[Rfam]
RNA sequence: GUUUCUUGGUGACGGCUACAGAUUAAACCAUUGGCUUCUGUAGCCAGAUGAAGUGAAAC
Numbered sequence: 001g002u003u004u005c006u007u008g009g010u011g012a013c014g015g016c017u018a019c020a021g022a023u024u025a026a027a028c029c030a031u032u033g034g035c036u037u038c039u040g041u042a043g044c045c046a047g048a049u050g051a052a053g054u055g056a057a058a059c
Stems, first nucleotide, its partner, number of pairs: 001059005014045009028034002
The record is a 59-nucleotide RNA sequence from Sparus aurata, which matches "Selenocysteine insertion sequence 1" in Rfam. The literature on the family includes a 1996 paper in RNA by Walczak et al., "A novel RNA structural motif in the selenocysteine insertion element of eukaryotic selenoprotein mRNAs". The incorporation of selenocysteine into a protein sequence is directed by an in-frame UGA codon (usually a stop codon) within the coding region of the mRNA. Selenoprotein mRNAs contain a conserved secondary structure in the 3' UTR that is required for the distinction of UGA stop from UGA selenocysteine. The selenocysteine insertion sequence (SECIS) is around 60 nt in length and adopts a hairpin structure which is sufficiently well-defined and conserved to act as a computational screen for selenoprotein genes. Its family is annotated with selenocysteine incorporation in the Gene Ontology.